Rfam assigns this 164-nucleotide sequence from Paenibacillus apis to the family "Group II catalytic intron D1-D4-3".
The organism belongs to Paenibacillus, within Bacteria.
Pairs were carried over by alignment from the consensus structure.
[Rfam]
RNA sequence: CAGUCCGUGAGGAUGUGUGCGGAGGGUCUGAAGGCAAAACCCGGAACAGGCGGCGAACCAAGUUGGCUGACGAAGUCGGAUGACCCUGCAAGAGAAGGGAAUGUCCAAUACCACUAAUGACUUCGGAAGUUAGGAGGAGCUGGAUUCGGGGGAAAGUUGGUUAU
Numbered sequence: 001c002a003g004u005c006c007g008u009g010a011g012g013a014u015g016u017g018u019g020c021g022g023a024g025g026g027u028c029u030g031a032a033g034g035c036a037a038a039a040c041c042c043g044g045a046a047c048a049g050g051c052g053g054c055g056a057a058c059c060a061a062g063u064u065g066g067c068u069g070a071c072g073a074a075g076u077c078g079g080a081u082g083a084c085c086c087u088g089c090a091a092g093a094g095a096a097g098g099g100a101a102u103g104u105c106c107a108a109u110a111c112c113a114c115u116a117a118u119g120a121c122u123u124c125g126g127a128a129g130u131u132a133g134g135a136g137g138a139g140c141u142g143g144a145u146u147c148g149g150g151g152g153a154a155a156g157u158u159g160g161u162u163a164u
Stems, first nucleotide, its partner, number of pairs: 003014004029163003034157002040150005047142003058139001059134001066130003071125006078106004084099004